Record summary: The record is a 121-nucleotide sequence from Sapajus apella, which matches "Small nucleolar RNA SNORA32" in Rfam. ACA32 is a member of the H/ACA class of snoRNA that guide the sites of modification of uridines to pseudouridines. Rfam 15.1 lists 615 matches to the family in 234 species. It scores 99 bits against the family's covariance model. By type it is an H/ACA-box small nucleolar RNA.
RNA sequence: UGGUCAUUGCCAAAAUUUUAAGAAUGCAAUUUCUCAUUCGCCGUGGACAUGACCAUAAAAUAAUUUCCCACUAACUAUUUUAUCUGCUACCUUGCUAGGAAGCAGUCUAUUAGGAUCAUUU
Numbered sequence: 001u002g003g004u005c006a007u008u009g010c011c012a013a014a015a016u017u018u019u020a021a022g023a024a025u026g027c028a029a030u031u032u033c034u035c036a037u038u039c040g041c042c043g044u045g046g047a048c049a050u051g052a053c054c055a056u057a058a059a060a061u062a063a064u065u066u067c068c069c070a071c072u073a074a075c076u077a078u079u080u081u082a083u084c085u086g087c088u089a090c091c092u093u094g095c096u097a098g099g100a101a102g103c104a105g106u107c108u109a110u111u112a113g114g115a116u117c118a119u120u121u
Stems, first nucleotide, its partner, number of pairs: 003053005010046003026041002029038001067114002070111001076105001085100001087098001
Its family is annotated with RNA processing and nucleolus in the Gene Ontology.